[Rfam]
RNA sequence: CCAUUCGUAAAAAUGGCUGUGCCAUGGUUUUAAGAUCGCAUAUCACAGCCAUUUUUGACGAGUUGGG
Numbered sequence: 001c002c003a004u005u006c007g008u009a010a011a012a013a014u015g016g017c018u019g020u021g022c023c024a025u026g027g028u029u030u031u032a033a034g035a036u037c038g039c040a041u042a043u044c045a046c047a048g049c050c051a052u053u054u055u056u057g058a059c060g061a062g063u064u065g066g067g
Stems, first nucleotide, its partner, number of pairs: 005061004010056004014051008025042002
Source information: A member of the RNA family "mir-2 microRNA precursor family" from Arctia plantaginis, 67 nucleotides long. A reference for the family is Ambros (2001), "microRNAs: tiny regulators with great potential", Cell. Gene Ontology terms of the family: RISC complex and miRNA-mediated post-transcriptional gene silencing. Rfam 15.1 lists 918 matches to the family in 280 species. The base pairs follow the family's consensus structure, which was predicted with PFOLD.